RNA sequence: AAAAAGGGCAUCUGCUGUGAGUGGCACAGUGCGGGCACGAGCUGCUCCUACUGCGGAAUCGCUAUCAAGAGAUUUCGGAUGCAUAAUUUUUACUCCCAGGAGCUGCUGAUAACCGACCGUUUCGGCGCUCCA
Numbered sequence: 001a002a003a004a005a006g007g008g009c010a011u012c013u014g015c016u017g018u019g020a021g022u023g024g025c026a027c028a029g030u031g032c033g034g035g036c037a038c039g040a041g042c043u044g045c046u047c048c049u050a051c052u053g054c055g056g057a058a059u060c061g062c063u064a065u066c067a068a069g070a071g072a073u074u075u076c077g078g079a080u081g082c083a084u085a086a087u088u089u090u091u092a093c094u095c096c097c098a099g100g101a102g103c104u105g106c107u108g109a110u111a112a113c114c115g116a117c118c119g120u121u122u123c124g125g126c127g128c129u130c131c132a
Stems, first nucleotide, its partner, number of pairs: 008082005013026005027053005033047005054077007100130004105126005111121003
RNA: U11 spliceosomal RNA